The record is a 72-nucleotide RNA from Methanocorpusculum labreanum, which matches "tRNA" in Rfam.
[Rfam]
RNA sequence: GCCGUCGUGGCUUAGCGGUAUAGCGGCUGAUUCGUAAUCAGCAGGCCGAGGGUUCAAGUCCCUCCGACGGCU
Numbered sequence: 001g002c003c004g005u006c007g008u009g010g011c012u013u014a015g016c017g018g019u020a021u022a023g024c025g026g027c028u029g030a031u032u033c034g035u036a037a038u039c040a041g042c043a044g045g046c047c048g049a050g051g052g053u054u055c056a057a058g059u060c061c062c063u064c065c066g067a068c069g070g071c072u
Stems, first nucleotide, its partner, number of pairs: 001071007010024003026042005048064005
About this RNA: By type it is a transfer RNA. Taxonomically the source falls in Methanocorpusculum labreanum (Archaea, Methanobacteriati, Methanomicrobia, Methanocorpusculum).